The family of this 107-nucleotide RNA sequence from Selenomonas sp. F0473 is "SAM riboswitch aptamer (S box leader)". Its family is annotated with regulation of gene expression in the Gene Ontology. The source organism's lineage runs through Bacteria, Bacillati, Bacillota, Selenomonadales and Selenomonas. Pairs were carried over by alignment from the consensus structure, which is taken from published work.
RNA sequence: ACCUCAUCCAGAGCAGCGGAGGGACCGGCCCGAUGAAGCUGCGGCAACCAUGACGUUUCGGUCAACGGUGCCAAUUCCUUUAGGCGGAGCAGCCUAUGAGAUGAGCG
Number, nucleotide and partner (000 for none) at each position: 001a000002c000003c105004u104005c103006a102007u101008c100009c000010a000011g000012a000013g042014c041015a040016g039017c038018g000019g000020a000021g031022g030023g029024a000025c000026c000027g078028g077029c023030c022031c021032g000033a000034u000035g000036a000037a000038g017039c016040u015041g014042c013043g072044g071045c070046a069047a000048c068049c067050a000051u064052g063053a062054c061055g000056u000057u000058u000059c000060g000061g054062u053063c052064a051065a000066c000067g049068g048069u046070g045071c044072c043073a000074a000075u000076u099077c028078c027079u000080u000081u096082a095083g094084g093085c092086g000087g000088a000089g000090c000091a000092g085093c084094c083095u082096a081097u000098g000099a076100g008101a007102u006103g005104a004105g003106c000107g000